[Rfam]
Shown here is a 107-nucleotide sequence from Abrus precatorius, a member of the family "Small nucleolar RNA Z152/R70/R12/".
Lineage of the source: Eukaryota > Tracheophyta > Mesangiospermae > eudicotyledons > Abrus.
A reference for the family is Barneche et al. (2001), "Identification of 66 box C/D snoRNAs in Arabidopsis thaliana: extensive gene duplications generated multiple isoforms predicting new ribosomal RNA 2'-O-methylation sites", J Mol Biol.
RNA sequence: GGUGCAAUGAUGAUACGAAGCACAUAGGUGUUUUUGGGCAGUGGACGAUACCACAAGGUUUCGCCGUGAGCCCUUAUUUUUAACGACUUCUCCUUCCACUGAGCACU
Numbered sequence: 001g002g003u004g005c006a007a008u009g010a011u012g013a014u015a016c017g018a019a020g021c022a023c024a025u026a027g028g029u030g031u032u033u034u035u036g037g038g039c040a041g042u043g044g045a046c047g048a049u050a051c052c053a054c055a056a057g058g059u060u061u062c063g064c065c066g067u068g069a070g071c072c073c074u075u076a077u078u079u080u081u082a083a084c085g086a087c088u089u090c091u092c093c094u095u096c097c098a099c100u101g102a103g104c105a106c107u
Stems, first nucleotide, its partner, number of pairs: 001107005